[Rfam]
RNA sequence: GGCCAUUCCGAGGGGUGUUCGCUGACGCGAGCUGAGAUGGCCAUGGGCCGAACCCUUCGAACCUGAUCCGGGUCAUGCCGGCGAAGGGACGGGAAGCUGGUUCACG
Numbered sequence: 001g002g003c004c005a006u007u008c009c010g011a012g013g014g015g016u017g018u019u020c021g022c023u024g025a026c027g028c029g030a031g032c033u034g035a036g037a038u039g040g041c042c043a044u045g046g047g048c049c050g051a052a053c054c055c056u057u058c059g060a061a062c063c064u065g066a067u068c069c070g071g072g073u074c075a076u077g078c079c080g081g082c083g084a085a086g087g088g089a090c091g092g093g094a095a096g097c098u099g100g101u102u103c104a105c106g
Stems, first nucleotide, its partner, number of pairs: 006094005011056004016050001017032005039049004062087003068081004